About this RNA: The record is a 122-nucleotide sequence from Bacillus sp. J14TS2, which matches "SAM riboswitch aptamer (S box leader)" in Rfam. A search with the family's covariance model found it, with a score of 66 bits. Lineage of the source: Bacteria > Bacillati > Bacillota > Bacilli > Bacillus.

[Rfam]
RNA sequence: CUCUUAUCCUGAGAUGGUGGAGGGAACAGGCCCUGUGAAACCCAGCAACCUACUGCGAAUCAAUUGAUUUUCCGCAGCAAGGUGCUAACCUGGUGCAAGGCAAUGGCCUUGGACGAUAAGAG
Numbered sequence: 001c002u003c004u005u006a007u008c009c010u011g012a013g014a015u016g017g018u019g020g021a022g023g024g025a026a027c028a029g030g031c032c033c034u035g036u037g038a039a040a041c042c043c044a045g046c047a048a049c050c051u052a053c054u055g056c057g058a059a060u061c062a063a064u065u066g067a068u069u070u071u072c073c074g075c076a077g078c079a080a081g082g083u084g085c086u087a088a089c090c091u092g093g094u095g096c097a098a099g100g101c102a103a104u105g106g107c108c109u110u111g112g113a114c115g116a117u118a119a120g121a122g
Stems, first nucleotide, its partner, number of pairs: 001122008013043001016042003022033003027095002030091001044086004049082002053077005096111006